Shown here is a 598-nucleotide part of an RNA from Plasmodium falciparum, a member of the family "Eukaryotic small subunit ribosomal RNA". It is one of the family's seed sequences. Rfam 15.1 lists 75,755 matches to the family in 2,556 species.

RNA sequence: GGAGCUUGCGGCUUAAUUUGACUCAACACGGGAAAACUCACUAGUUUAAGACAAGAGUAGGAUUGACAGAUUAAUAGCUCUUUCUUGAUUUCUUGGAUGGUGAUGCAUGGCCGUUUUUAGUUCGUGAAUAUGAUUUGUCUGGUUAAUUCCGAUAACGAACGAGAUCUUAACCUGCUAAUUAGCGGUAAGUACACUAUAUUUUUAUUUGAAAUUGAAUAUAGGUAAUUAUACAUGUUUAUUCAGUGUUCAAAUUAGGAUAUUUUUUUAUUAAAAUAUUCUUUUCCCUGUUUUACUAAUAAUUUGUUUUUUUUUACUCUAUUUCUCUCUUCUUUUAAGAAUGUACUUGCUUGAUUAAAUAAAGCUUCUUAGAGGAACAGUGUGUAUCUAACACAAGGAAGUUUAAGGCAACAACAGGUCUGUGAUGUCCUUAGAUAAACUAGGCUGCACGCGUGCUACAAUGAUAUAUAUAACAAGUUGUUAAAAAUGUACUUAUAAAUAAGUGUGUACAAUUUUUCCUGUACUGAAAAGUAUAGGUAAUCUUUAUCAGUAUAUAUCGUAAUUGGGAUAGAUUAUUGCAAUUAUUAAUCUUGAACGAGGA
Numbered sequence: 001g002g003a004g005c006u007u008g009c010g011g012c013u014u015a016a017u018u019u020g021a022c023u024c025a026a027c028a029c030g031g032g033a034a035a036a037c038u039c040a041c042u043a044g045u046u047u048a049a050g051a052c053a054a055g056a057g058u059a060g061g062a063u064u065g066a067c068a069g070a071u072u073a074a075u076a077g078c079u080c081u082u083u084c085u086u087g088a089u090u091u092c093u094u095g096g097a098u099g100g101u102g103a104u105g106c107a108u109g110g111c112c113g114u115u116u117u118u119a120g121u122u123c124g125u126g127a128a129u130a131u132g133a134u135u136u137g138u139c140u141g142g143u144u145a146a147u148u149c150c151g152a153u154a155a156c157g158a159a160c161g162a163g164a165u166c167u168u169a170a171c172c173u174g175c176u177a178a179u180u181a182g183c184g185g186u187a188a189g190u191a192c193a194c195u196a197u198a199u200u201u202u203u204a205u206u207u208g209a210a211a212u213u214g215a216a217u218a219u220a221g222g223u224a225a226u227u228a229u230a231c232a233u234g235u236u237u238a239u240u241c242a243g244u245g246u247u248c249a250a251a252u253u254a255g256g257a258u259a260u261u262u263u264u265u266u267a268u269u270a271a272a273a274u275a276u277u278c279u280u281u282u283c284c285c286u287g288u289u290u291u292a293c294u295a296a297u298a299a300u301u302u303g304u305u306u307u308u309u310u311u312u313a314c315u316c317u318a319u320u321u322c323u324c325u326c327u328u329c330u331u332u333u334a335a336g337a338a339u340g341u342a343c344u345u346g347c348u349u350g351a352u353u354a355a356a357u358a359a360a361g362c363u364u365c366u367u368a369g370a371g372g373a374a375c376a377g378u379g380u381g382u383a384u385c386u387a388a389c390a391c392a393a394g395g396a397a398g399u400u401u402a403a404g405g406c407a408a409c410a411a412c413a414g415g416u417c418u419g420u421g422a423u424g425u426c427c428u429u430a431g432a433u434a435a436a437c438u439a440g441g442c443u444g445c446a447c448g449c450g451u452g453c454u455a456c457a458a459u460g461a462u463a464u465a466u467a468u469a470a471c472a473a474g475u476u477g478u479u480a481a482a483a484a485u486g487u488a489c490u491u492a493u494a495a496a497u498a499a500g501u502g503u504g505u506a507c508a509a510u511u512u513u514u515c516c517u518g519u520a521c522u523g524a525a526a527a528g529u530a531u532a533g534g535u536a537a538u539c540u541u542u543a544u545c546a547g548u549a550u551a552u553a554u555c556g557u558a559a560u561u562g563g564g565a566u567a568g569a570u571u572a573u574u575g576c577a578a579u580u581a582u583u584a585a586u587c588u589u590g591a592a593c594g595a596g597g598a
Base pairs, nucleotide, nucleotide: 001456003454004453005452007450008449009448010447011445012444017032018031019030020029041440042439043438044437045436046435047434052095053094054093055092056091065084066083068081069080070079099428100427102426103425104424105423108422109420110416111415112414113412114411115410120160121159122158123157124156125155126136127135128134140151141150142149166404167403168402169401171372172371173370175369176368177367178366181363182362183361375395378392379391380390381389382388460555461554462553463552464551465550466549472541473540474539515534516533519530520529521528522527562593567588568587569586570585571584572583